[Rfam]
RNA sequence: GAUAAGAAGGGUGAGAAUCCCUUCCGCCGAAAGCCCAAGGGUUCCUGAGUAAAGGUCGUCUUCUCAGGGUUAGGCGGGACCUAAGGCGAGGCCGAGAGGCGUAGUCGAUGGACAACGGGUUAAUAGUCCCGUCCCGCUUUCGUGGAGCGAUGGGGUGACGCAUUAGGAUAGGCCAACCGGAGCAAUGGCUAAGCCCGGCGGGCAACGGAGCUUGCAAGGAGAGGCAAAUCCGCCUUGCGUGAGAGUGACGUUGUUCGGGAAGCCCCCACGGGGGUGAUAACUGGUUGAAUCCAGGGUGCCAAGAAAACCCUCUAAGCGAAGAAGCGAGAGCGCCCGUACCGAAAACCGACACAGGUGGGCGAGUGUAAAAGCACUAAGGCGCG
Number, nucleotide and partner (000 for none) at each position: 001g000002a000003u000004a000005a000006g024007a023008a022009g021010g020011g019012u000013g000014a000015g000016a000017a000018u000019c011020c010021c009022u008023u007024c006025c381026g380027c379028c378029g000030a000031a000032a000033g360034c359035c358036c357037a000038a000039g340040g339041g000042u000043u000044c068045c067046u066047g065048a064049g063050u000051a000052a000053a061054g060055g000056u000057c000058g000059u000060c054061u053062u000063c049064u048065c047066a046067g045068g044069g000070u000071u000072a000073g000074g000075c336076g335077g334078g333079a000080c111081c110082u000083a000084a000085g106086g105087c104088g000089a102090g000091g100092c099093c098094g000095a000096g000097a000098g093099g092100c091101g000102u089103a000104g087105u086106c085107g000108a000109u000110g081111g080112a000113c000114a000115a132116c131117g130118g129119g128120u000121u000122a000123a000124u000125a000126g000127u000128c119129c118130c117131g116132u115133c000134c000135c332136g331137c330138u329139u328140u327141c326142g325143u324144g000145g000146a000147g317148c316149g000150a000151u000152g312153g311154g310155g309156u000157g000158a000159c000160g299161c298162a297163u296164u000165a000166g292167g291168a290169u000170a000171g286172g285173c284174c283175a282176a000177c198178c197179g196180g195181a000182g000183c000184a000185a000186u000187g000188g000189c000190u000191a000192a000193g000194c000195c180196c179197g178198g177199c258200g000201g000202g000203c253204a252205a251206c250207g000208g000209a000210g246211c245212u244213u000214g238215c237216a236217a235218g234219g233220a000221g000222a000223g231224g230225c000226a000227a000228a000229u000230c224231c223232g000233c219234c218235u217236u216237g215238c214239g000240u000241g000242a000243g000244a212245g211246u210247g000248a000249c000250g206251u205252u204253g203254u000255u000256c000257g000258g199259g000260a000261a000262g275263c274264c273265c272266c271267c000268a000269c000270g000271g266272g265273g264274g263275u262276g000277a000278u000279a000280a000281c000282u175283g174284g173285u172286u171287g000288a000289a000290u168291c167292c166293a000294g000295g000296g163297u162298g161299c160300c000301a000302a000303g000304a000305a000306a000307a000308c000309c155310c154311u153312c152313u000314a000315a000316g148317c147318g000319a000320a000321g000322a000323a000324g143325c142326g141327a140328g139329a138330g137331c136332g135333c078334c077335c076336g075337u000338a000339c040340c039341g000342a000343a000344a000345a000346c355347c354348g000349a000350c000351a000352c000353a000354g347355g346356u000357g036358g035359g034360c033361g000362a375363g374364u373365g372366u000367a000368a000369a000370a000371g000372c365373a364374c363375u362376a000377a000378g028379g027380c026381g025382c000383g000
Rfam assigns this 383-nucleotide part of an RNA from Truepera radiovictrix to the family "Bacterial large subunit ribosomal RNA".
Rfam links the family to the GO terms structural constituent of ribosome and ribosome.
Pairs were carried over by alignment from the consensus structure, which is taken from published work.